[Rfam]
RNA: ZMP/ZTP riboswitch aptamer (pfl RNA motif)
Organism: Sphingopyxis sp. QXT-31
RNA sequence: CUGCCGUCCCGCAACUGGCGCUGACGAUGGAGACCCAUCAGGGAGCGGGAUUUCGCCGACCGGCGAACGAGCCGCGCGCCUGGACGUCCCUU
Numbered sequence: 001c002u003g004c005c006g007u008c009c010c011g012c013a014a015c016u017g018g019c020g021c022u023g024a025c026g027a028u029g030g031a032g033a034c035c036c037a038u039c040a041g042g043g044a045g046c047g048g049g050a051u052u053u054c055g056c057c058g059a060c061c062g063g064c065g066a067a068c069g070a071g072c073c074g075c076g077c078g079c080c081u082g083g084a085c086g087u088c089c090c091u092u
Stems, first nucleotide, its partner, number of pairs: 003054001006051007015042002017080005027038004069087001071085001073083001